[Rfam]
RNA sequence: AGGGGUAUAGCGCAAUUGAUAGAGCAACGGUCUCCAAAACCGUAGGUUGUGGGUUUGAGUCCCUCUACCCCUG
Numbered sequence: 001a002g003g004g005g006u007a008u009a010g011c012g013c014a015a016u017u018g019a020u021a022g023a024g025c026a027a028c029g030g031u032c033u034c035c036a037a038a039a040c041c042g043u044a045g046g047u048u049g050u051g052g053g054u055u056u057g058a059g060u061c062c063c064u065c066u067a068c069c070c071c072u073g
Base pairs, nucleotide, nucleotide: 001072002071003070004069005068006067007066010025011024013022027043028042029041030040031039049065051063052062053061

The record is a 73-nucleotide RNA sequence from Dialister histaminiformans, which matches "tRNA" in Rfam. It scores 60 bits against the family's covariance model. Lineage of the source: Bacteria > Bacillota > Negativicutes > Veillonellales > Dialister. The base pairs follow the family's consensus structure, which is taken from published work. The family is grouped with related families in Rfam's "tRNA clan".